[Rfam]
RNA sequence: CAAGGAGCUUGUUGAGCAGCUGAGUGAUUUAAAAGCAAUCAAAUUCUUACAGCUUUAAAUCAUGCAGCUGUUGAACAAGUUCUUUC
Numbered sequence: 001c002a003a004g005g006a007g008c009u010u011g012u013u014g015a016g017c018a019g020c021u022g023a024g025u026g027a028u029u030u031a032a033a034a035g036c037a038a039u040c041a042a043a044u045u046c047u048u049a050c051a052g053c054u055u056u057a058a059a060u061c062a063u064g065c066a067g068c069u070g071u072u073g074a075a076c077a078a079g080u081u082c083u084u085u086c
Stems, first nucleotide, its partner, number of pairs: 002085012015072008024063010035053002
Shown here is an 86-nucleotide RNA, a member of the family "mir-1781 microRNA precursor family". Rfam links the family to the GO terms RISC complex and miRNA-mediated post-transcriptional gene silencing.